[Rfam]
RNA sequence: AUGUGCCUGGCUCCCUGUAUGCCACUCAUCCAGAGCAACACCUUUGCGAUGAGGUUGCCUGCGAUGGAUGGCGUGCACGGAUCCAAGCAUAU
Numbered sequence: 001a002u003g004u005g006c007c008u009g010g011c012u013c014c015c016u017g018u019a020u021g022c023c024a025c026u027c028a029u030c031c032a033g034a035g036c037a038a039c040a041c042c043u044u045u046g047c048g049a050u051g052a053g054g055u056u057g058c059c060u061g062c063g064a065u066g067g068a069u070g071g072c073g074u075g076c077a078c079g080g081a082u083c084c085a086a087g088c089a090u091a092u
Base pairs, nucleotide, nucleotide: 001092002091003090004089005088006087008085009084010083012081013080014079016077017076018075019074020073021072022071023070024069027066028065029064

A member of the RNA family "mir-160 microRNA precursor family" from Hordeum vulgare, 92 nucleotides long. NCBI's taxonomy places the organism under Eukaryota, Streptophyta, Tracheophyta, Triticodae, Hordeum vulgare. The family's consensus secondary structure was predicted with PFOLD.